[Rfam]
Nucleotides: 113
Stems, first nucleotide, its partner, number of pairs: 002038003006034007049076007084108010
Number, partner (000 for none) and nucleotide at each position: 001000a002038c003037u004036c005000c006034c007033g008032g009031g010030g011029g012028u013000g014000u015000u016000c017000u018000c019000c020000u021000c022000c023000c024000a025000u026000u027000u028012g029011c030010c031009c032008c033007c034006g035000c036004g037003a038002g039000u040000g041000u042000u043000c044000c045000c046000c047000u048000c049076u050075g051074g052073a053072g054071g055070u056000u057000u058000c059000g060000c061000c062000u063000a064000u065000a066000u067000g068000g069000c070055a071054c072053u073052u074051c075050c076049a077000a078000u079000g080000a081000c082000u083000u084108g085107a086106g087105c088104c089103g090102g091101g092100u093099c094000u095000u096000c097000g098000u099093g100092a101091u102090c103089c104088g105087g106086c107085u108084u109000u110000u111000u112000u113000u